[Rfam]
RNA sequence: AUACUACGAUGAGUGUAUAGUUCAGCAGGUGGAAUCAUGAAGAGAUUUACCAUUUGCCUGAUGUAUCU
Numbered sequence: 001a002u003a004c005u006a007c008g009a010u011g012a013g014u015g016u017a018u019a020g021u022u023c024a025g026c027a028g029g030u031g032g033a034a035u036c037a038u039g040a041a042g043a044g045a046u047u048u049a050c051c052a053u054u055u056g057c058c059u060g061a062u063g064u065a066u067c068u
Base pairs, nucleotide, nucleotide: 001066002065003064004063006038008036009035010034014027015026016025043055044054045053046052

Rfam assigns this 68-nucleotide RNA sequence from Microcebus murinus to the family "Small nucleolar RNA SNORD77". Gene Ontology terms of the family: nucleolus and RNA processing. Clan: SNORD77 clan. A reference for the family is Tycowski et al. (2004), "Guide RNAs with 5' caps and novel box C/D snoRNA-like domains for modification of snRNAs in metazoa", Curr Biol. From the family's description: U77 belongs to the C/D family of snoRNAs. It is predicted to guide 2'O-ribose methylation of large 28S rRNA subunit at position A1521. The C/D snoRNAs U44, U47, U74, U75, U76, U78, U79, U80 and U81 share the same host gene as U77 (non-coding).